[Rfam]
RNA sequence: CCGACUGCUCUGAACUCCAGUUCCGGGCUAGUCUCUGGGGACCCAGACUCAUAUGGGGAGAAACUGGACUGUCUGGCAGCAGAUGGA
Dot-bracket structure: ((..((((((((.(((((((((((..(..((..(((((....)))))))..)....)))...))))))..)).))).)))))..)).

Shown here is an 87-nucleotide sequence from Myotis lucifugus, a member of the family "mir-9230 microRNA precursor family". Rfam 15.1 lists 859 matches to the family in 7 species.